[Rfam]
RNA sequence: UUUAUGCUUUAGCUAUUGAACUGUUUUGUCAAUCUCUGACAGAGAACAAUUCGUUCUUUAACAGAGAAGGUCAAAACAGUUUAAGAGCUAAAGCCUCCACUAAC
Numbered sequence: 001u002u003u004a005u006g007c008u009u010u011a012g013c014u015a016u017u018g019a020a021c022u023g024u025u026u027u028g029u030c031a032a033u034c035u036c037u038g039a040c041a042g043a044g045a046a047c048a049a050u051u052c053g054u055u056c057u058u059u060a061a062c063a064g065a066g067a068a069g070g071u072c073a074a075a076a077c078a079g080u081u082u083a084a085g086a087g088c089u090a091a092a093g094c095c096u097c098c099a100c101u102a103a104c
Stems, first nucleotide, its partner, number of pairs: 001099001007093008016084009025065005031059001045055003